[Rfam]
RNA sequence: UCGUCCCCCCUCGUGAUCGUCUUCUCACCUUUCGCGCGGGCGGGCGGAAUGAAGGAGACCCCCGCGAGGACAUGACUCGCGGGGGUUCUCC
Number, nucleotide and partner (000 for none) at each position: 001u047002c046003g045004u000005c044006c043007c042008c000009c040010c039011u038012c000013g035014u034015g033016a032017u000018c000019g029020u000021c000022u000023u000024c000025u000026c000027a000028c000029c019030u000031u000032u016033c015034g014035c013036g000037c000038g011039g010040g009041c000042g007043g006044g005045c003046g002047g001048a000049a000050u000051g000052a000053a000054g091055g090056a089057g087058a086059c085060c084061c083062c082063c081064g080065c079066g078067a077068g076069g000070a000071c000072a000073u000074g000075a000076c068077u067078c066079g065080c064081g063082g062083g061084g060085g059086u058087u057088c000089u056090c055091c054
RNA: sodF sRNA
Organism: Streptomyces sp. SAT1